[Rfam]
Nucleotides: 100
Stems, first nucleotide, its partner, number of pairs: 009044004016038002019035002022032004075093007
Number, partner (000 for none) and nucleotide at each position: 001000a002000a003000u004000g005000g006000u007000u008000g009044g010043u011042g012041g013000c014000g015000c016038a017037c018000u019035u020034c021000u022032c023031c024030c025029u026000g027000a028000c029025a030024g031023g032022g033000c034020g035019a036000c037017g038016u039000c040000a041012u042011c043010g044009c045000g046000c047000a048000c049000a050000u051000u052000c053000c054000g055000u056000g057000u058000a059000g060000a061000a062000g063000u064000g065000c066000a067000g068000a069000u070000a071000c072000c073000c074000g075093a076092g077091c078090c079089c080088g081087c082000c083000g084000c085000a086000a087081g088080c089079g090078g091077g092076c093075u094000u095000u096000u097000u098000u099000u100000u

Shown here is a 100-nucleotide RNA from [Pantoea] beijingensis, a member of the family "Tryptophan operon leader". The base pairs follow the family's consensus structure, which is taken from published work. The literature on the family includes a 1982 paper in Annu Rev Genet by Kolter and Yanofsky, "Attenuation in amino acid biosynthetic operons". Gene Ontology terms of the family: tryptophan biosynthetic process and transcriptional attenuation by ribosome.